[Rfam]
RNA sequence: UUCACCGGGAAGGAGAGCGGCUGGAAGGGAGGUGGUGUAAUGCUGUGUGGUGUUUGUGUGUGUGGGGUGGGGGGUGGCGUGUAGGGCGAGUGUGUGAGUGGAUGCGUGAAUGUCUGAGUGGGGGCGUGAAUGUGUGAGUGCGUGCGCCCGCCCCUGCACCCCUCCCCCGGCCUACACGUUGAUCUUAUUUGAUCGGGUUGGGACUCCAGCCCCGCCGGGCCGACCCGAAAUGAAAAGCUUCCCUCCUGCGAAGCCCUUCCUCGGGGCGCUGUGCAGCGAGGCCCCUUGGGCGGUGGCAACGCCGUGGCCCCGGAGGUUCCGGAGCCGGUCCUGUGGGGCCCGGCGCUCAGAAGUGAUGAAUUGAUCAGAUAGACGAGGCCGGGCUUGUCCCGCGCCAUUGAUUAUCGAGGCGAUUAUGAUCUGC
Numbered sequence: 001u002u003c004a005c006c007g008g009g010a011a012g013g014a015g016a017g018c019g020g021c022u023g024g025a026a027g028g029g030a031g032g033u034g035g036u037g038u039a040a041u042g043c044u045g046u047g048u049g050g051u052g053u054u055u056g057u058g059u060g061u062g063u064g065g066g067g068u069g070g071g072g073g074g075u076g077g078c079g080u081g082u083a084g085g086g087c088g089a090g091u092g093u094g095u096g097a098g099u100g101g102a103u104g105c106g107u108g109a110a111u112g113u114c115u116g117a118g119u120g121g122g123g124g125c126g127u128g129a130a131u132g133u134g135u136g137a138g139u140g141c142g143u144g145c146g147c148c149c150g151c152c153c154c155u156g157c158a159c160c161c162c163u164c165c166c167c168c169g170g171c172c173u174a175c176a177c178g179u180u181g182a183u184c185u186u187a188u189u190u191g192a193u194c195g196g197g198u199u200g201g202g203a204c205u206c207c208a209g210c211c212c213c214g215c216c217g218g219g220c221c222g223a224c225c226c227g228a229a230a231u232g233a234a235a236a237g238c239u240u241c242c243c244u245c246c247u248g249c250g251a252a253g254c255c256c257u258u259c260c261u262c263g264g265g266g267c268g269c270u271g272u273g274c275a276g277c278g279a280g281g282c283c284c285c286u287u288g289g290g291c292g293g294u295g296g297c298a299a300c301g302c303c304g305u306g307g308c309c310c311c312g313g314a315g316g317u318u319c320c321g322g323a324g325c326c327g328g329u330c331c332u333g334u335g336g337g338g339c340c341c342g343g344c345g346c347u348c349a350g351a352a353g354u355g356a357u358g359a360a361u362u363g364a365u366c367a368g369a370u371a372g373a374c375g376a377g378g379c380c381g382g383g384c385u386u387g388u389c390c391c392g393c394g395c396c397a398u399u400g401a402u403u404a405u406c407g408a409g410g411c412g413a414u415u416a417u418g419a420u421c422u423g424c
Stems, first nucleotide, its partner, number of pairs: 049160005055083006100115001102113003118147003124141004188236003193228004198223003202220001205219003209215002259316004264311003268308003273305002276302003281297003284293002324344005329338003348423004359415005377396003382391002
RNA: Small Cajal body-specific RNA 2